[Rfam]
RNA: Manganese Mn2+ riboswitch aptamer (yybP-ykoY)
RNA sequence: AUACUACUCAAAGGGGAGUAGCUUUUAGGUUCUAAACCUAAAACAAAGUCGUCAGUUCAUGACUUAAUGUCAUCGGCUUUGUUGGCAUCUACGUAUGCUU
Numbered sequence: 001a002u003a004c005u006a007c008u009c010a011a012a013g014g015g016g017a018g019u020a021g022c023u024u025u026u027a028g029g030u031u032c033u034a035a036a037c038c039u040a041a042a043a044c045a046a047a048g049u050c051g052u053c054a055g056u057u058c059a060u061g062a063c064u065u066a067a068u069g070u071c072a073u074c075g076g077c078u079u080u081g082u083u084g085g086c087a088u089c090u091a092c093g094u095a096u097g098c099u100u
Stems, first nucleotide, its partner, number of pairs: 026040003042083010059073005